[Rfam]
RNA sequence: AGUGAGUUUAGAGGCGCAAUAACCAUUAGUACAAAUUUUGAGGAGAAUGAGCUCCUGUGAUAAGUUUGAAAAGGGGGUAUUGCCGAAGCAACGAGUAACUCAUGUGCUUGUUGUUGGGGCUACAUUUAAUAAAUGUAGCACUGUCGUAUAGUUUUUUAAACUAUAUGGAGGGCUAUCUCACGC
Numbered sequence: 001a002g003u004g005a006g007u008u009u010a011g012a013g014g015c016g017c018a019a020u021a022a023c024c025a026u027u028a029g030u031a032c033a034a035a036u037u038u039u040g041a042g043g044a045g046a047a048u049g050a051g052c053u054c055c056u057g058u059g060a061u062a063a064g065u066u067u068g069a070a071a072a073g074g075g076g077g078u079a080u081u082g083c084c085g086a087a088g089c090a091a092c093g094a095g096u097a098a099c100u101c102a103u104g105u106g107c108u109u110g111u112u113g114u115u116g117g118g119g120c121u122a123c124a125u126u127u128a129a130u131a132a133a134u135g136u137a138g139c140a141c142u143g144u145c146g147u148a149u150a151g152u153u154u155u156u157u158a159a160a161c162u163a164u165a166u167g168g169a170g171g172g173c174u175a176u177c178u179c180a181c182g183c
Base pairs, nucleotide, nucleotide: 006178009175010174011173016083017082018081019080020079021078023076024075032068033067034066035065036064037063038062087115088114089113090112091111092110093109094108095107096106097105116142117141119139120138121137122136123135124134125133126132144168145167146166147165148164149163150162
This 183-nucleotide RNA sequence from Anaerobacillus arseniciselenatis belongs to the Rfam family "Lysine riboswitch aptamer". Riboswitches are metabolite binding domains within certain messenger RNAs that serve as precision sensors for their corresponding targets. Allosteric rearrangement of mRNA structure is mediated by ligand binding, and this results in modulation of gene expression. This family includes riboswitches that sense lysine in a number of genes involved in lysine metabolism, including lysC. The base pairs follow the family's consensus structure, which is taken from published work. The organism belongs to Anaerobacillus, within Bacteria. A search with the family's covariance model found it, with a score of 126 bits. Its family is annotated with lysine biosynthetic process in the Gene Ontology.